[Rfam]
RNA: MIR8565 microRNA precursor family
Organism: Amborella trichopoda
RNA sequence: CCCACAUUUAUGUGUGUAGGACUUCAAAGGAUCACCAUUAAAUUUGGCACAGAUCUCUAAAAACAUUAUCACAUAAGUGUGAGACUUGACUUUUUUAGAGAUUUGUGUCAAAUUUAAUGAUGAUUCUUUGAGGUCCUACACACAUGGGUAUGGG
Dot-bracket structure: .(((.((((((((.((((((((((((((.(((.(.((((((((((((((((((((((((((((..((((((((....)))))....)))..)))))))))))))))))))))))))))).).))).)))))))))))))).)))))))).))).